[Rfam]
RNA sequence: GGAGACUUGAGAAGGGCUGUCCCUAGUACGAGAGGACCGGGACGGACGAACCUCUGGUGUGCCAGUUGUUCUGCCAAGGGCAUGGCUGGUUGGCUACGUUCGGAAGGGAUAACCGCUGAAAGCAUCUAAGCGGGAAGCUCGCUUCAAGAUGAGGUCUCCCACAGGGUAGCCUGGUAAGGCCCCCGACUAGAUGAUCGGGUUGAUAGGCCGGAGGUGGAAGUGCGGUGACGCAUGGAGCUGACCGGUACUAAUAGGCCGAGG
Numbered sequence: 001g002g003a004g005a006c007u008u009g010a011g012a013a014g015g016g017c018u019g020u021c022c023c024u025a026g027u028a029c030g031a032g033a034g035g036a037c038c039g040g041g042a043c044g045g046a047c048g049a050a051c052c053u054c055u056g057g058u059g060u061g062c063c064a065g066u067u068g069u070u071c072u073g074c075c076a077a078g079g080g081c082a083u084g085g086c087u088g089g090u091u092g093g094c095u096a097c098g099u100u101c102g103g104a105a106g107g108g109a110u111a112a113c114c115g116c117u118g119a120a121a122g123c124a125u126c127u128a129a130g131c132g133g134g135a136a137g138c139u140c141g142c143u144u145c146a147a148g149a150u151g152a153g154g155u156c157u158c159c160c161a162c163a164g165g166g167u168a169g170c171c172u173g174g175u176a177a178g179g180c181c182c183c184c185g186a187c188u189a190g191a192u193g194a195u196c197g198g199g200u201u202g203a204u205a206g207g208c209c210g211g212a213g214g215u216g217g218a219a220g221u222g223c224g225g226u227g228a229c230g231c232a233u234g235g236a237g238c239u240g241a242c243c244g245g246u247a248c249u250a251a252u253a254g255g256c257c258g259a260g261g
Stems, first nucleotide, its partner, number of pairs: 001159008011145004017045007047102005055096003062089005067082006106140003113133005162173003175259001178257004182199005204250003207246005213239002220233005